[Rfam]
RNA sequence: UAACAAGUCUUCACACCCCUCAAACCAAGACCUCUAGGGUGUAUAAAAACGUCUUUCAUAUCCUUGCCUUAGGGUGGCGAGGAAAUAGUAAAACCA
Number, nucleotide and partner (000 for none) at each position: 001u000002a000003a000004c000005a000006a000007g000008u000009c000010u000011u000012c000013a042014c041015a040016c039017c038018c000019c037020u036021c000022a000023a000024a000025c000026c000027a055028a054029g053030a052031c051032c000033u000034c000035u000036a020037g019038g017039g016040u015041g014042u013043a000044u000045a000046a000047a000048a000049a000050c000051g031052u030053c029054u028055u027056u000057c000058a000059u000060a000061u083062c082063c081064u080065u079066g078067c077068c000069u000070u000071a000072g000073g000074g000075u000076g000077g067078c066079g065080a064081g063082g062083a061084a000085a000086u000087a000088g000089u000090a000091a000092a000093a000094c000095c000096a000
The record is a 96-nucleotide sequence, which matches "PhotoRC-II RNA" in Rfam. The family's consensus secondary structure is taken from published work. Rfam classes the family as a cis-regulatory element.